[Rfam]
RNA: Purine riboswitch aptamer
RNA sequence: UUAAUAUUUAAAUUUCUCAUCCAUAUAUUUCUGAUAAUAAGGUUCAGAAGUUUCUACGAGAAGCCUUAAAUUUCUCACUAUGGGUAAUCUGAUUCAAUAU
Numbered sequence: 001u002u003a004a005u006a007u008u009u010a011a012a013u014u015u016c017u018c019a020u021c022c023a024u025a026u027a028u029u030u031c032u033g034a035u036a037a038u039a040a041g042g043u044u045c046a047g048a049a050g051u052u053u054c055u056a057c058g059a060g061a062a063g064c065c066u067u068a069a070a071u072u073u074c075u076c077a078c079u080a081u082g083g084g085u086a087a088u089c090u091g092a093u094u095c096a097a098u099a100u
Stems, first nucleotide, its partner, number of pairs: 019085007029049006058076006